[Rfam]
RNA sequence: CUUAGGGCAAAUAGUGACUAGCCCGACUUGGGGAAAAAGAGAUCAACAUUUUGGGUAAAAUUAAAUUUGCUUCUUUUUAUCCAAAAACUUUUUACCGUGGGUAAAAAGAAUCUUCUUGGGGUAUAAAAAGAACCAGAUUUAGAUUUAUCCCAAUGUUAAUGAUUUCUUUUCCCUAAGAAGGUUGUUCACUAUUUGCUCCAAG
Numbered sequence: 001c002u003u004a005g006g007g008c009a010a011a012u013a014g015u016g017a018c019u020a021g022c023c024c025g026a027c028u029u030g031g032g033g034a035a036a037a038a039g040a041g042a043u044c045a046a047c048a049u050u051u052u053g054g055g056u057a058a059a060a061u062u063a064a065a066u067u068u069g070c071u072u073c074u075u076u077u078u079a080u081c082c083a084a085a086a087a088c089u090u091u092u093u094a095c096c097g098u099g100g101g102u103a104a105a106a107a108g109a110a111u112c113u114u115c116u117u118g119g120g121g122u123a124u125a126a127a128a129a130g131a132a133c134c135a136g137a138u139u140u141a142g143a144u145u146u147a148u149c150c151c152a153a154u155g156u157u158a159a160u161g162a163u164u165u166c167u168u169u170u171c172c173c174u175a176a177g178a179a180g181g182u183u184g185u186u187c188a189c190u191a192u193u194u195g196c197u198c199c200a201a202g
Stems, first nucleotide, its partner, number of pairs: 003200001005198013019184005027177010042163004046156003050153002053150002056147004061142009071132007078123002080120005088108009

MIR2670 microRNA precursor family: a 202-nucleotide sequence from Medicago truncatula. The match comes from Rfam's covariance-model search (159 bits).